[Rfam]
This 67-nucleotide sequence from Pipistrellus kuhlii belongs to the Rfam family "mir-302 microRNA precursor family".
NCBI's taxonomy places the organism under Eukaryota, Opisthokonta, Gnathostomata, Mammalia, Pipistrellus.
The family is grouped with related families in Rfam's "mir-290 clan".
The base pairs follow the family's consensus structure, which was predicted with RNAalifold.
RNA sequence: CUUCCACUUUAACAUGGAAAUGCUCUCUGUGGCCUGCGUAGUAAGUGCUUCCAUGUUUUAGUAGAAG
Numbered sequence: 001c002u003u004c005c006a007c008u009u010u011a012a013c014a015u016g017g018a019a020a021u022g023c024u025c026u027c028u029g030u031g032g033c034c035u036g037c038g039u040a041g042u043a044a045g046u047g048c049u050u051c052c053a054u055g056u057u058u059u060a061g062u063a064g065a066a067g
Base pairs, nucleotide, nucleotide: 001067002066003065006062007061008060011057012056013055014054015053016052017051018050019049021047022046023045024044027041028040